[Rfam]
RNA sequence: GGGACCUUAAACUGGAUCUGUUCUAUAUGCUGGUACCGUUGCAUCCUUCAGCACAACGAGUCAACGAGUCAAGCACUCAAGCCUAGUUGAUGAGACGUGGCCUCUGGCCAGAGCGUGAUUAACGGCCAGGAUGCUCUAAUCACGGAGCCAUCCGACGGCUGUAGAGGAUCGUUCCUGCCUCGGUGCAGGGGUGGCUCAGAGGUUCUCUCAUGAUCC
Numbered sequence: 001g002g003g004a005c006c007u008u009a010a011a012c013u014g015g016a017u018c019u020g021u022u023c024u025a026u027a028u029g030c031u032g033g034u035a036c037c038g039u040u041g042c043a044u045c046c047u048u049c050a051g052c053a054c055a056a057c058g059a060g061u062c063a064a065c066g067a068g069u070c071a072a073g074c075a076c077u078c079a080a081g082c083c084u085a086g087u088u089g090a091u092g093a094g095a096c097g098u099g100g101c102c103u104c105u106g107g108c109c110a111g112a113g114c115g116u117g118a119u120u121a122a123c124g125g126c127c128a129g130g131a132u133g134c135u136c137u138a139a140u141c142a143c144g145g146a147g148c149c150a151u152c153c154g155a156c157g158g159c160u161g162u163a164g165a166g167g168a169u170c171g172u173u174c175c176u177g178c179c180u181c182g183g184u185g186c187a188g189g190g191g192u193g194g195c196u197c198a199g200a201g202g203u204u205c206u207c208u209c210a211u212g213a214u215c216c
Base pairs, nucleotide, nucleotide: 001028010022011021012020014018039072040071041070044067045066047064048063081215084212085211100203101202102201103200104199105198106196107195108194109193110192112173113172114171115170122162123161124160125159126158127157129153130152131151132150133149134147135146136145137144174189175188176187177186178185
RNA: Plant small nucleolar RNA U3